[Rfam]
RNA sequence: GUGGUAGUGGGAGGAGUCCCUCAGCCCAGAUUGCGAGAGGGCGCAGGCUAGGCCGAGGGACCCACUGGUGCAUG
Number, nucleotide and partner (000 for none) at each position: 001g071002u000003g069004g000005u067006a066007g065008u000009g000010g000011g000012a000013g063014g062015a000016g061017u060018c059019c058020c057021u056022c055023a000024g053025c052026c051027c000028a049029g048030a000031u046032u045033g044034c043035g042036a000037g000038a000039g000040g000041g000042c035043g034044c033045a032046g031047g000048c029049u028050a000051g026052g025053c024054c000055g022056a021057g020058g019059g018060a017061c016062c014063c013064a000065c007066u006067g005068g000069u003070g000071c001072a000073u000074g000
Rfam assigns this 74-nucleotide sequence from Myotis brandtii to the family "mir-9193 microRNA precursor family". Rfam links the family to the GO terms RISC complex and miRNA-mediated post-transcriptional gene silencing. The match comes from Rfam's covariance-model search (56 bits). NCBI's taxonomy places the organism under Eukaryota, Euteleostomi, Mammalia, Boreoeutheria, Myotis.